[Rfam]
RNA: MIR8565 microRNA precursor family
RNA sequence: CCCCCACCUAUGUAUGUAGGAUCCUAAAGGAUCACCAUUAAAUUUGAUAUGGAUCUUUAAAAAAGUUAUAACAUGGGUGUGAGACUUGAUUUUUUUAGAGAUCCGUGUCAAAUUUAAUGGUGAUCUUUUGGGAUCCUACAUACAUAGGUGGGAG
Numbered sequence: 001c002c003c004c005c006a007c008c009u010a011u012g013u014a015u016g017u018a019g020g021a022u023c024c025u026a027a028a029g030g031a032u033c034a035c036c037a038u039u040a041a042a043u044u045u046g047a048u049a050u051g052g053a054u055c056u057u058u059a060a061a062a063a064a065g066u067u068a069u070a071a072c073a074u075g076g077g078u079g080u081g082a083g084a085c086u087u088g089a090u091u092u093u094u095u096u097a098g099a100g101a102u103c104c105g106u107g108u109c110a111a112a113u114u115u116a117a118u119g120g121u122g123a124u125c126u127u128u129u130g131g132g133a134u135c136c137u138a139c140a141u142a143c144a145u146a147g148g149u150g151g152g153a154g
Base pairs, nucleotide, nucleotide: 003152004151005150006149007148008147009146010145011144012143013142015140016139017138018137019136020135021134022133023132024131025130026129027128028127030125031124032123034121035120036119037118038117039116040115041114042113043112044111045110046109047108048107049106050105051104052103053102054101055100056099057098058097059096060095061094062093063092064091065090066089067088068087069082071080072079073078